[Rfam]
The family of this 33-nucleotide RNA from Flavobacterium sp. F52 is "DUF805b RNA". Pairs were carried over by alignment from the consensus structure, which is taken from published work. The sequence is in the family's curated seed alignment.

Nucleotides: 033
Stems, first nucleotide, its partner, number of pairs: 003020003010032003
Number, partner (000 for none) and nucleotide at each position: 001000a002000a003020u004019g005018g006000g007000a008000a009000a010032g011031c012030c013000g014000a015000a016000a017000a018005c019004c020003a021000a022000a023000g024000a025000g026000a027000g028000u029000a030012g031011g032010c033000a